Overview: A member of the RNA family "Archaeal small subunit ribosomal RNA" from Halobacteriales archaeon YIM 93590, 600 nucleotides of a longer RNA. The family is grouped with related families in Rfam's "SSU clan".
[Rfam]
RNA sequence: UGGCGGGGGAGCACUACAACCGGAGGAGCCUGCGGUUUAAUUGGACUCAACGCCGGACAUCUCACCGGCCCCGACUGCAGUGGUGACGGCCAGGCUGAUGCCCUUGCUCGAGCUGCAGAGAGGAGGUGCAUGGCCGCCGUCAGCUCGUACCGUGAGGCAUCCUGUUAAGUCAGGUAACGAUCGAGACCCGUGCACCUAGUUGCCAGCGGUGUCCACCGGACAGCCGGGUACACUAGGUGGACCGCCGGUGCCAAACCGGAGGAAGGCGCGGGCAACGGUAGGUCAGUAUGCCCCGAAUGGGCCGGGCGACACGCGGGCUACAAUGGCCGGGACAAUGGGUUCCAACACCGAGAGGUGACGGUAAUCCCCGAAACCCGGUCGUAGUUCGGAUUGCGGGCUGGAACUCGCCCGCAUGAAGCUGGAUUCGGUAGUAAUCGCGCCUCAGAAAGGCGCGGUGAAUACGUCCCUGCUCCUUGCACACACCGCCCGUCAAAGCACCCGAGUGGGGUCCGAAUGAGGCCUGGUCACCAGGUCGAAUCUGGGCUCCGCAAGGGGGCUUAAGUCGUAACAAGGUAGGCGUAGGGGAAUCUGCGGCUGGAU
Numbered sequence: 001u002g003g004c005g006g007g008g009g010a011g012c013a014c015u016a017c018a019a020c021c022g023g024a025g026g027a028g029c030c031u032g033c034g035g036u037u038u039a040a041u042u043g044g045a046c047u048c049a050a051c052g053c054c055g056g057a058c059a060u061c062u063c064a065c066c067g068g069c070c071c072c073g074a075c076u077g078c079a080g081u082g083g084u085g086a087c088g089g090c091c092a093g094g095c096u097g098a099u100g101c102c103c104u105u106g107c108u109c110g111a112g113c114u115g116c117a118g119a120g121a122g123g124a125g126g127u128g129c130a131u132g133g134c135c136g137c138c139g140u141c142a143g144c145u146c147g148u149a150c151c152g153u154g155a156g157g158c159a160u161c162c163u164g165u166u167a168a169g170u171c172a173g174g175u176a177a178c179g180a181u182c183g184a185g186a187c188c189c190g191u192g193c194a195c196c197u198a199g200u201u202g203c204c205a206g207c208g209g210u211g212u213c214c215a216c217c218g219g220a221c222a223g224c225c226g227g228g229u230a231c232a233c234u235a236g237g238u239g240g241a242c243c244g245c246c247g248g249u250g251c252c253a254a255a256c257c258g259g260a261g262g263a264a265g266g267c268g269c270g271g272g273c274a275a276c277g278g279u280a281g282g283u284c285a286g287u288a289u290g291c292c293c294c295g296a297a298u299g300g301g302c303c304g305g306g307c308g309a310c311a312c313g314c315g316g317g318c319u320a321c322a323a324u325g326g327c328c329g330g331g332a333c334a335a336u337g338g339g340u341u342c343c344a345a346c347a348c349c350g351a352g353a354g355g356u357g358a359c360g361g362u363a364a365u366c367c368c369c370g371a372a373a374c375c376c377g378g379u380c381g382u383a384g385u386u387c388g389g390a391u392u393g394c395g396g397g398c399u400g401g402a403a404c405u406c407g408c409c410c411g412c413a414u415g416a417a418g419c420u421g422g423a424u425u426c427g428g429u430a431g432u433a434a435u436c437g438c439g440c441c442u443c444a445g446a447a448a449g450g451c452g453c454g455g456u457g458a459a460u461a462c463g464u465c466c467c468u469g470c471u472c473c474u475u476g477c478a479c480a481c482a483c484c485g486c487c488c489g490u491c492a493a494a495g496c497a498c499c500c501g502a503g504u505g506g507g508g509u510c511c512g513a514a515u516g517a518g519g520c521c522u523g524g525u526c527a528c529c530a531g532g533u534c535g536a537a538u539c540u541g542g543g544c545u546c547c548g549c550a551a552g553g554g555g556g557c558u559u560a561a562g563u564c565g566u567a568a569c570a571a572g573g574u575a576g577g578c579g580u581a582g583g584g585g586a587a588u589c590u591g592c593g594g595c596u597g598g599a600u
Stems, first nucleotide, its partner, number of pairs: 001480002003477003007474007016464002020428005025321001027319008035310002041056004065305007075118004080113002088108003092104003122294002125292004131288002133283003136279004143182001145180004150157002161174004188271004193239007203228002207226003210222004242262002245259005325380007337368003342361002346357004387418001392413007434456008483572001485569001488565002491562001493559004498554003503549010514538002518534007574597003578593006